RNA sequence: CGACUGACUGGCGAUGGUGCCCGCCCGGAAGACGACUUCCGAACCGCCACAAGGCUGAUGGCCCCUGCGAACGA
Numbered sequence: 001c002g003a004c005u006g007a008c009u010g011g012c013g014a015u016g017g018u019g020c021c022c023g024c025c026c027g028g029a030a031g032a033c034g035a036c037u038u039c040c041g042a043a044c045c046g047c048c049a050c051a052a053g054g055c056u057g058a059u060g061g062c063c064c065c066u067g068c069g070a071a072c073g074a
Stems, first nucleotide, its partner, number of pairs: 010025004016065002019062003046055003
The family of this 74-nucleotide RNA sequence from Mycobacterium pseudokansasii is "Fluoride riboswitch aptamer (crcB RNA motif)". Gene Ontology terms of the family: positive regulation of gene expression and response to fluoride. The family's consensus secondary structure is taken from published work.